Record summary:
This 124-nucleotide RNA sequence from Novosphingobium sp. Rr 2-17 belongs to the Rfam family "Glycine riboswitch aptamer". This family represents the bacterial glycine riboswitch. It scores 46 bits against the family's covariance model. The family has 44 seed sequences and 9,425 matches in Rfam 15.1.

RNA sequence: UAGCGAUACUCUGGAAAGUGUCACGCACCGGUAACGGUGGUGGCCGCCGAAGGUGUAACCCGUGUCUCCGUCUCGUGGCGGACCUACGGGGAAGCUCUCAGGUUUCCGUGACAGAGGGGGCACC
Numbered sequence: 001u002a003g004c005g006a007u008a009c010u011c012u013g014g015a016a017a018g019u020g021u022c023a024c025g026c027a028c029c030g031g032u033a034a035c036g037g038u039g040g041u042g043g044c045c046g047c048c049g050a051a052g053g054u055g056u057a058a059c060c061c062g063u064g065u066c067u068c069c070g071u072c073u074c075g076u077g078g079c080g081g082a083c084c085u086a087c088g089g090g091g092a093a094g095c096u097c098u099c100a101g102g103u104u105u106c107c108g109u110g111a112c113a114g115a116g117g118g119g120g121c122a123c124c
Stems, first nucleotide, its partner, number of pairs: 007118001009116005020044004046103003049099002053097001055095001059090006